[Rfam]
Nucleotides: 046
Stems, first nucleotide, its partner, number of pairs: 002020005010046005024036004
Number, partner (000 for none) and nucleotide at each position: 001000c002020g003019g004018g005017g006016a007000c008000a009000g010046g011045c012044a013043g014042a015000c016006u017005c018004c019003c020002c021000u022000u023000a024036g025035a026034c027033g028000c029000u030000c031000g032000c033027c034026g035025u036024c037000c038000a039000a040000g041000c042014u043013c044012u045011g046010c

The record is a 46-nucleotide RNA sequence, which matches "chrB-b RNA" in Rfam. Rfam's curators put it in the seed alignment. It is annotated as a cis-regulatory element.